[Rfam]
RNA sequence: AAACAUACAGGUGAUGGAGUUCACCUUUAACCGCCGGAAGGCUAAUGACUCCUGUCAGUGC
Numbered sequence: 001a002a003a004c005a006u007a008c009a010g011g012u013g014a015u016g017g018a019g020u021u022c023a024c025c026u027u028u029a030a031c032c033g034c035c036g037g038a039a040g041g042c043u044a045a046u047g048a049c050u051c052c053u054g055u056c057a058g059u060g061c
Stems, first nucleotide, its partner, number of pairs: 010025004016052006033042003
RNA: Fluoride riboswitch aptamer (crcB RNA motif)
Organism: Rossellomorea aquimaris